[Rfam]
RNA sequence: GCGGAGGUUUAGCUCAGUGGUUACUUCUCAUACUUAACAAUGAUCCACUCCAUGAGUCCACGGGCUCCGGGGUUCAAACCACGGGCGCUGUCCUCUGCUUUU
Numbered sequence: 001g002c003g004g005a006g007g008u009u010u011a012g013c014u015c016a017g018u019g020g021u022u023a024c025u026u027c028u029c030a031u032a033c034u035u036a037a038c039a040a041u042g043a044u045c046c047a048c049u050c051c052a053u054g055a056g057u058c059c060a061c062g063g064g065c066u067c068c069g070g071g072g073u074u075c076a077a078a079c080c081a082c083g084g085g086c087g088c089u090g091u092c093c094u095c096u097g098c099u100u101u102u
Stems, first nucleotide, its partner, number of pairs: 002097006012086004017082004025078002
A member of the RNA family "Vault RNA" from Neogobius melanostomus, 102 nucleotides long. The source organism's lineage runs through Eukaryota, Eumetazoa, Chordata, Craniata and Neogobius. By type it is a non-coding RNA gene. The base pairs follow the family's consensus structure, which is taken from published work. A reference for the family is Stadler et al. (2009), "Evolution of Vault RNAs", Mol Biol Evol.